Notes
The family of this 221-nucleotide sequence from Ectopseudomonas mendocina is "sucA-II RNA". The source organism's lineage runs through Bacteria, Gammaproteobacteria, Pseudomonadales, Pseudomonadaceae and Ectopseudomonas mendocina. The base pairs follow the family's consensus structure, which is taken from published work.
RNA sequence: CUGCAUUACCGGCUCCGGUCGGUAAUGCAGCAAAAGCCAGAGCCGCAGCCCACAAAGCCGCGGCUCAUACUCGAAAAAUAUGACGACCAGCAGGGGCAUCCGGGCUGGUACCCGGACUAUCUGCGGGAACCCAAGUGGCUUGAUCCGAGUCGCAGCAAGAUGACUUUGAUUGGAGCCAUGCGGUAUUCACGCCGGUGGUGUCCCCUUACCGAGGGUGACCA
Numbered sequence: 001c002u003g004c005a006u007u008a009c010c011g012g013c014u015c016c017g018g019u020c021g022g023u024a025a026u027g028c029a030g031c032a033a034a035a036g037c038c039a040g041a042g043c044c045g046c047a048g049c050c051c052a053c054a055a056a057g058c059c060g061c062g063g064c065u066c067a068u069a070c071u072c073g074a075a076a077a078a079u080a081u082g083a084c085g086a087c088c089a090g091c092a093g094g095g096g097c098a099u100c101c102g103g104g105c106u107g108g109u110a111c112c113c114g115g116a117c118u119a120u121c122u123g124c125g126g127g128a129a130c131c132c133a134a135g136u137g138g139c140u141u142g143a144u145c146c147g148a149g150u151c152g153c154a155g156c157a158a159g160a161u162g163a164c165u166u167u168g169a170u171u172g173g174a175g176c177c178a179u180g181c182g183g184u185a186u187u188c189a190c191g192c193c194g195g196u197g198g199u200g201u202c203c204c205c206u207u208a209c210c211g212a213g214g215g216u217g218a219c220c221a
Base pairs, nucleotide, nucleotide: 001030002029003028004027005026006025007024008023009022010021011020012019013018040066041065042064043063044062045061048058049057092206093205094204095203096202097200098199099116100115101114102113103112104111117198118197119196120195121194123192124191125190127188128187129184130183131182135179136178137177138176139175140173141172142171143170144169148165149164150163151162152161